[Rfam]
RNA sequence: CGUACCUGUCCGUUCAAAUUCACUGGCAGAGGUGGAGGAACCAGAAGUGGCGCCAGCGGCGCCUUGGGGUGAAGUGCGGCUAGUUGUCCGCGGCGUUCUGCUGCGGUCCCGGCCGGGCCGAGAUGCUCCGUCUCGAAUCCGACAGCUAACUUCGCAGGCGUGUAGAGAGGAAUC
Dot-bracket structure: (...(.(.....................).)((((((....((.....................))(((.....(.(((((.............................))))).)..((((.......))))...))).........)))))).).................

c-di-AMP riboswitch aptamer (ydaO/yuaA leader): a 174-nucleotide RNA sequence from Crystallibacter crystallopoietes. Rfam links the family to the GO terms cyclic-di-AMP binding and regulation of gene expression. A search with the family's covariance model found it, with a score of 48 bits.